Source information
The family of this 119-nucleotide sequence from Enterococcus faecalis is "DUF3268 RNA". It is annotated as a small RNA. Taxonomically the source falls in Enterococcus faecalis (Bacteria, Bacillati, Bacillota, Enterococcus).
[Rfam]
RNA sequence: GGCAGGGGCUUGCGUUCAGGCUCUCGGUACGUUUAUGGUAUAGCGUCAGACCUGAUUCAAGGGAAUCAGGGAACCGUUACGGAUUCUGCGCAUUGAGCGGAUCCACAACAACGCAAGUC
Numbered sequence: 001g002g003c004a005g006g007g008g009c010u011u012g013c014g015u016u017c018a019g020g021c022u023c024u025c026g027g028u029a030c031g032u033u034u035a036u037g038g039u040a041u042a043g044c045g046u047c048a049g050a051c052c053u054g055a056u057u058c059a060a061g062g063g064a065a066u067c068a069g070g071g072a073a074c075c076g077u078u079a080c081g082g083a084u085u086c087u088g089c090g091c092a093u094u095g096a097g098c099g100g101a102u103c104c105a106c107a108a109c110a111a112c113g114c115a116a117g118u119c
Stems, first nucleotide, its partner, number of pairs: 007119010025076004029046005051070007081104003086100004